[Rfam]
RNA sequence: AUAAUAUUCGUGCUUAUUGCUCGUAUAAUUUUGACGAUAUGGGUCGAAAGUUUCUACCAGAUACCUUAAAUAUCUGACUAUGAGGAAUCAAAAGUUGUUA
Numbered sequence: 001a002u003a004a005u006a007u008u009c010g011u012g013c014u015u016a017u018u019g020c021u022c023g024u025a026u027a028a029u030u031u032u033g034a035c036g037a038u039a040u041g042g043g044u045c046g047a048a049a050g051u052u053u054c055u056a057c058c059a060g061a062u063a064c065c066u067u068a069a070a071u072a073u074c075u076g077a078c079u080a081u082g083a084g085g086a087a088u089c090a091a092a093a094g095u096u097g098u099u100a
Base pairs, nucleotide, nucleotide: 018086020084021083022082023081024080025079029049030048031047032046033045034044035043058076059075060074061073062072063071
Dot-bracket structure: .................(.((((((...(((((((.......)))))))........((((((.......))))))..)))))).)..............
Purine riboswitch aptamer: a 100-nucleotide sequence from Clostridium fungisolvens.
NCBI's taxonomy places the organism under Bacteria, Bacillota, Clostridia, Clostridiaceae, Clostridium.
The match comes from Rfam's covariance-model search (80 bits).
A reference for the family is Mandal et al. (2003), "Riboswitches Control Fundamental Biochemical Pathways in Bacillus subtilis and Other Bacteria", Cell.